[Rfam]
RNA sequence: AACCACAGGGAACUGCUGCUGCUGAUAUACAACCAUAUUUAUACACGACUAUAUCACAGUGGCUGUUCUUUUUGGUU
Numbered sequence: 001a002a003c004c005a006c007a008g009g010g011a012a013c014u015g016c017u018g019c020u021g022c023u024g025a026u027a028u029a030c031a032a033c034c035a036u037a038u039u040u041a042u043a044c045a046c047g048a049c050u051a052u053a054u055c056a057c058a059g060u061g062g063c064u065g066u067u068c069u070u071u072u073u074g075g076u077u
Base pairs, nucleotide, nucleotide: 004074005073007071008070009069010068011067012066013065016062017061018060019059020058021057023056024055026053027052028051029050
mir-6 microRNA precursor family: a 77-nucleotide sequence from Drosophila grimshawi. The base pairs follow the family's consensus structure, which was predicted with PFOLD. About the family: This family consists of the microRNA (miRNA) precursor mir-6 which appears to be Drosophila specific. The sequence is in the family's curated seed alignment. The literature on the family includes a 2002 paper in Genes Dev by Mourelatos et al., "miRNPs: a novel class of ribonucleoproteins containing numerous microRNAs". Lineage of the source: Eukaryota > Opisthokonta > Allotriocarida > Drosophilinae > Hawaiian Drosophila.